Annotation:
A member of the RNA family "terC RNA" from Aureimonas endophytica, 61 nucleotides long. By type it is a cis-regulatory element. The organism belongs to Aureimonas, within Bacteria.
RNA sequence: CCCCUGAUCCGGGCCCCUCUGGCGGAAGGUGUCGGCCCUUCCGUGAUGUCGGAUCGCGUGA
Number, nucleotide and partner (000 for none) at each position: 001c000002c000003c000004c000005u000006g055007a054008u053009c052010c051011g050012g049013g000014c000015c000016c000017c000018u000019c000020u000021g000022g044023c043024g042025g041026a040027a039028g038029g037030u000031g000032u000033c000034g000035g000036c000037c029038c028039u027040u026041c025042c024043g023044u022045g000046a000047u000048g000049u012050c011051g010052g009053a008054u007055c006056g000057c000058g000059u000060g000061a000